[Rfam]
RNA sequence: UGGGAGAGGAGUUAUAAGAGGAAGAGUAUGAUAUAAGCAAGUAUCAUAUCGUAGAGCACCUAGCACCAGCGAGGCAGAGCAAGAGCUUGACAGAAGCUCACAUGAAGAUUGGCAUGCUUCAGAGUCGGAGCAAGAAACAAGACAAGCUUCUCUCCAAGUGUUGGAAGACCAUCAAGACUUUAAAGUCAAUCAUAAGGUAUUCAUCUUCCAACACCGAUGGGCCA
Dot-bracket structure: (((.........(.(..(((((.(((((.........................................................................................................................................................................))))).)))))..).)........)))